[Rfam]
RNA sequence: CUGCUUGCAGCGCUUUUUGGUCAGUGUUAAACAAAUCAGACCGCGGCCAUAUUUGGCCAUAAAGUUAAUGGCUUCCGGCGUGACAUAUUCGGCCGCCAUCACCA
Dot-bracket structure: ..(.(((.((((((........))))))......((..(.(...).).))...))).).......(..((((..((((.(.....).).)))..))...))..)

Annotation: The family of this 104-nucleotide RNA from Alishewanella agri is "Vibrio RNA AS9". Lineage of the source: Bacteria > Gammaproteobacteria > Alteromonadales > Alteromonadaceae > Alishewanella agri. The family's consensus secondary structure was predicted with RNAfold. Rfam's curators write: Identified by direct cloning an parallel sequencing experiments with 5S/tRNA depletion. Confirmed by Northern blot. A search with the family's covariance model found it, with a score of 64 bits.